The record is a 56-nucleotide RNA from Synechococcus sp. CC9902, which matches "Cyanobacterial functional RNA 1" in Rfam. The sequence is in the family's curated seed alignment. The base pairs follow the family's consensus structure, which is taken from published work. The source organism's lineage runs through Bacteria, Bacillati, Synechococcales, Synechococcaceae and Synechococcus. On this family, see Voss et al., BMC Genomics 2007: "A motif-based search in bacterial genomes identifies the ortholog of the small RNA Yfr1 in all lineages of cyanobacteria".
[Rfam]
RNA sequence: GUGCGGGCUAGCGCCCACACACUCCUCACACCCCCGGCUCGACGCGUUCGAGCUUU
Numbered sequence: 001g002u003g004c005g006g007g008c009u010a011g012c013g014c015c016c017a018c019a020c021a022c023u024c025c026u027c028a029c030a031c032c033c034c035c036g037g038c039u040c041g042a043c044g045c046g047u048u049c050g051a052g053c054u055u056u
Base pairs, nucleotide, nucleotide: 001020002019003018005016006015007014008013036054037053038052039051040050041049042048